[Rfam]
RNA sequence: GGGACAGGGGGGUCUUCGCCACUGCGGCGAAGCCUGUCCAGAAGGUUGUGCGUGAUGUGUGUCAGGCGCGACCAGUGGUUGUCGCUCGGGGGUGAACGCCG
Numbered sequence: 001g002g003g004a005c006a007g008g009g010g011g012g013u014c015u016u017c018g019c020c021a022c023u024g025c026g027g028c029g030a031a032g033c034c035u036g037u038c039c040a041g042a043a044g045g046u047u048g049u050g051c052g053u054g055a056u057g058u059g060u061g062u063c064a065g066g067c068g069c070g071a072c073c074a075g076u077g078g079u080u081g082u083c084g085c086u087c088g089g090g091g092g093u094g095a096a097c098g099c100c101g
Stems, first nucleotide, its partner, number of pairs: 002039007014032007044073008